[Rfam]
RNA sequence: GUCGGUUGGCCCGAAAGGUCGCUGGUCCCGGAUCCUGAACAGCCCCCCCAGCCCCCCUGGAUCGGCGUUCCGGCCAACCGACACUCUCUCCAUAUCCCCAAUGCGAGGCCCGCGCAGACGUCCCCGACUGCGCGGGUC
Numbered sequence: 001g002u003c004g005g006u007u008g009g010c011c012c013g014a015a016a017g018g019u020c021g022c023u024g025g026u027c028c029c030g031g032a033u034c035c036u037g038a039a040c041a042g043c044c045c046c047c048c049c050a051g052c053c054c055c056c057c058u059g060g061a062u063c064g065g066c067g068u069u070c071c072g073g074c075c076a077a078c079c080g081a082c083a084c085u086c087u088c089u090c091c092a093u094a095u096c097c098c099c100a101a102u103g104c105g106a107g108g109c110c111c112g113c114g115c116a117g118a119c120g121u122c123c124c125c126g127a128c129u130g131c132g133c134g135g136g137u138c
Stems, first nucleotide, its partner, number of pairs: 001082011013070002020067008030056002035051003088105001090103001093100001107138011
RNA: Caulobacter sRNA CC3664